[Rfam]
RNA sequence: AACAGAGUAGGCCAUGCGCGUCAAGUGUCUGCAGAUGGGAUGUCGCUGUGGAACGAAACGAGGGAUCGUACGGUGCAUGGUCGCGUCCGCUGUU
Numbered sequence: 001a002a003c004a005g006a007g008u009a010g011g012c013c014a015u016g017c018g019c020g021u022c023a024a025g026u027g028u029c030u031g032c033a034g035a036u037g038g039g040a041u042g043u044c045g046c047u048g049u050g051g052a053a054c055g056a057a058a059c060g061a062g063g064g065a066u067c068g069u070a071c072g073g074u075g076c077a078u079g080g081u082c083g084c085g086u087c088c089g090c091u092g093u094u
Stems, first nucleotide, its partner, number of pairs: 001094005010082009019072003025054002028052007038088005058069004